[Rfam]
RNA sequence: AGGGGCAAAUUGUGCCCCUGUAGUGCGUGUGAAUAGGGUGUUCUUUGGCCAGACAUCUGGUUCGUGAAUC
Numbered sequence: 001a002g003g004g005g006c007a008a009a010u011u012g013u014g015c016c017c018c019u020g021u022a023g024u025g026c027g028u029g030u031g032a033a034u035a036g037g038g039u040g041u042u043c044u045u046u047g048g049c050c051a052g053a054c055a056u057c058u059g060g061u062u063c064g065u066g067a068a069u070c
Stems, first nucleotide, its partner, number of pairs: 001019006030064005036058004042053003
Rfam assigns this 70-nucleotide RNA sequence to the family "L13-Bacteroidia ribosomal protein leader".
By type it is a cis-regulatory leader.